This 75-nucleotide sequence from Tetracentron sinense belongs to the Rfam family "Small nucleolar RNA Z105". The match comes from Rfam's covariance-model search (51 bits). The source organism's lineage runs through Eukaryota, Viridiplantae, Euphyllophyta, Trochodendrales and Tetracentron.
[Rfam]
RNA sequence: CGAGCAUGAUGAUGAUAAACUCAAAUAGACCGAUAGAUUUAAUGAUUGGAAAUAAAAACCUCCUACUCAUUCUGA
Numbered sequence: 001c002g003a004g005c006a007u008g009a010u011g012a013u014g015a016u017a018a019a020c021u022c023a024a025a026u027a028g029a030c031c032g033a034u035a036g037a038u039u040u041a042a043u044g045a046u047u048g049g050a051a052a053u054a055a056a057a058a059c060c061u062c063c064u065a066c067u068c069a070u071u072c073u074g075a
Base pairs, nucleotide, nucleotide: 006070007069008068009067034045